[Rfam]
RNA: MIR5298 microRNA precursor family
Organism: Medicago truncatula
RNA sequence: UUAGUGUUUCUUCAUUUUUUUUUGGAAUUUUUCCUGGAUUUUUGUUGUUGAAGGUUGAUGGAAAUGAUAUGAAGAUGAAAAACAGGAGAAG
Numbered sequence: 001u002u003a004g005u006g007u008u009u010c011u012u013c014a015u016u017u018u019u020u021u022u023u024g025g026a027a028u029u030u031u032u033c034c035u036g037g038a039u040u041u042u043u044g045u046u047g048u049u050g051a052a053g054g055u056u057g058a059u060g061g062a063a064a065u066g067a068u069a070u071g072a073a074g075a076u077g078a079a080a081a082a083c084a085g086g087a088g089a090a091g
Base pairs, nucleotide, nucleotide: 005085008082009081011079012078013077014076015075016074017073018072019071037056038055039054040053041052042051043050